[Rfam]
A member of the RNA family "SAM riboswitch aptamer (S box leader)" from Aneurinibacillus sp. XH2, 110 nucleotides long. Pairs were carried over by alignment from the consensus structure, which is taken from published work. About the family: The SAM riboswitch is found upstream of a number of genes which code for proteins involved in methionine or cysteine biosynthesis in Gram-positive bacteria. It scores 99 bits against the family's covariance model.
RNA sequence: UUCUUAUCUAGAGAGGUGGAGGGACUGGCCCGGUGAAACCUCGGCAACCAUUGGAGACUACAUCCAAACGGUGCCAAUUCCAACAGGAUUUAUGUCCUGAAAGAUAAGGA
Dot-bracket structure: ((((((((....(((((...(((..[[[)))......)))))((((.((.((((.........))))..))))))...(]]].((((((....))))))..)))))))))